The record is a 74-nucleotide RNA from Falsiroseomonas stagni, which matches "Makes More Granules Regulator RNA (mmgR)" in Rfam. SuhB later renamed mmgR (makes more granules regulator) was a putative non-coding RNA found multiple times in the Agrobacterium tumefaciens genome and related alpha-proteobacteria. Other non-coding RNAs uncovered in the same analysis include: speF, ybhL, metA, and serC.Several studies inSinorhizobium meliloti showed that suhB element is indeed a non-coding RNA:firstly it was detected on Northern blot and called Sm8RNA, secondly in an RNAseq study referred to as SmelC689.The mutant phenotype's (strain lacking the small RNA) cytoplasm contains higher content of polyhydroxybutyrate (PBH)storage granules than wild type strain. The family's RNA type in Rfam is small RNA. The base pairs follow the family's consensus structure. Taxonomically the source falls in Falsiroseomonas stagni (Bacteria, Alphaproteobacteria, Acetobacterales, Roseomonadaceae).
RNA sequence: GUUGUCUGUCUUUCUUGGACGUUUCCUCCCUAAACUCGGCGGUCCCUCACGGGACCGCCCUUUUUUUUGCCCGG
Number, nucleotide and partner (000 for none) at each position: 001g000002u000003u000004g000005u000006c000007u000008g020009u019010c018011u017012u000013u000014c000015u000016u000017g011018g010019a009020c008021g000022u000023u000024u000025c000026c000027u000028c000029c000030c000031u000032a000033a000034a000035c000036u000037c000038g059039g058040c057041g056042g055043u054044c053045c052046c051047u000048c000049a000050c000051g046052g045053g044054a043055c042056c041057g040058c039059c038060c000061u000062u000063u000064u000065u000066u000067u000068u000069g000070c000071c000072c000073g000074g000